mir-3492 microRNA precursor family: a 78-nucleotide RNA sequence from Schistosoma bovis. Rfam 15.1 lists 21,496 matches to the family in 13 species. A search with the family's covariance model found it, with a score of 50 bits.

[Rfam]
RNA sequence: AGCUUUUCGAAUCCGUGCUGAGAUUUCGUUCGAUGCCAACCCAUUAGGGCUGAUCAGGCUUCCGAGAUCAGUGAAGUU
Numbered sequence: 001a002g003c004u005u006u007u008c009g010a011a012u013c014c015g016u017g018c019u020g021a022g023a024u025u026u027c028g029u030u031c032g033a034u035g036c037c038a039a040c041c042c043a044u045u046a047g048g049g050c051u052g053a054u055c056a057g058g059c060u061u062c063c064g065a066g067a068u069c070a071g072u073g074a075a076g077u078u
Stems, first nucleotide, its partner, number of pairs: 002077005008071001011068003016064002020061003024058003028054003